[Rfam]
RNA: Small nucleolar RNA Z199
Organism: Hibiscus syriacus
RNA sequence: GAUCAUGUGAAGAGAAACUAAAACUGCAACAAUAAUAUUGGAUAUAAUUCCAUGAUUACUUGUAUUUAAGUCUCUGAUGGUC
Numbered sequence: 001g002a003u004c005a006u007g008u009g010a011a012g013a014g015a016a017a018c019u020a021a022a023a024c025u026g027c028a029a030c031a032a033u034a035a036u037a038u039u040g041g042a043u044a045u046a047a048u049u050c051c052a053u054g055a056u057u058a059c060u061u062g063u064a065u066u067u068a069a070g071u072c073u074c075u076g077a078u079g080g081u082c
Base pairs, nucleotide, nucleotide: 001081003080004079005078040050041049042048043047